[Rfam]
RNA sequence: ACAGGAACAUGACCUACGAGGUGAUAGACCAUGCGGCUGAGUCUGUCUGUCACUUCUGUAGGCCGACAUCCUGU
Numbered sequence: 001a002c003a004g005g006a007a008c009a010u011g012a013c014c015u016a017c018g019a020g021g022u023g024a025u026a027g028a029c030c031a032u033g034c035g036g037c038u039g040a041g042u043c044u045g046u047c048u049g050u051c052a053c054u055u056c057u058g059u060a061g062g063c064c065g066a067c068a069u070c071c072u073g074u
Base pairs, nucleotide, nucleotide: 001074002073003072004071005070006069010065011064013062014061015060016059018056019055020054021053022052023051024050025049026048027047028046029045